[Rfam]
RNA sequence: GCCACCACUGCACCUGACCUGUUCUCUGUUAGCUGGAACAAUCCAGUGGUGAGCUGAUAAUAAACCCUAGUUUAGGAGACAGCCUUGUUCUUCAUGUGGAUGACUCUGUGCUGAAAGUAUGGAAACAGCC
Numbered sequence: 001g002c003c004a005c006c007a008c009u010g011c012a013c014c015u016g017a018c019c020u021g022u023u024c025u026c027u028g029u030u031a032g033c034u035g036g037a038a039c040a041a042u043c044c045a046g047u048g049g050u051g052a053g054c055u056g057a058u059a060a061u062a063a064a065c066c067c068u069a070g071u072u073u074a075g076g077a078g079a080c081a082g083c084c085u086u087g088u089u090c091u092u093c094a095u096g097u098g099g100a101u102g103a104c105u106c107u108g109u110g111c112u113g114a115a116a117g118u119a120u121g122g123a124a125a126c127a128g129c130c
Base pairs, nucleotide, nucleotide: 005049006048007047008046009045010044018036019035021033022031066122067121069120070118071117072116073115075112076111080108081107082106085103088100089099090098
Small nucleolar RNA SNORA65: a 130-nucleotide RNA from Molossus molossus. Rfam's curators write: U65 belongs to the H/ACA class of snoRNAs which are thought to guide the sites of modification of uridines to pseudouridines. The base pairs follow the family's consensus structure, which was predicted with RNAalifold. Lineage of the source: Eukaryota > Opisthokonta > Theria > Molossidae > Molossus. It scores 96 bits against the family's covariance model.